[Rfam]
RNA sequence: GACGCAGGACGACCUGUGGCAUGAUCCUCCUGCCGGGACGACCCG
Numbered sequence: 001g002a003c004g005c006a007g008g009a010c011g012a013c014c015u016g017u018g019g020c021a022u023g024a025u026c027c028u029c030c031u032g033c034c035g036g037g038a039c040g041a042c043c044c045g
Base pairs, nucleotide, nucleotide: 001020003018004017005016006015007014008013034045035044036043037042
Source information: A member of the RNA family "Guanidine-II riboswitch aptamer (mini-ykkC)" from Tabrizicola oligotrophica, 45 nucleotides long. Rfam's curators write: Simpler in structure and has fewer highly conserved nucleotide positions than the ykkC-yxkD leader. The base pairs follow the family's consensus structure, which is taken from published work. It scores 37 bits against the family's covariance model. NCBI's taxonomy places the organism under Bacteria, Pseudomonadati, Pseudomonadota, Rhodobacterales, Tabrizicola.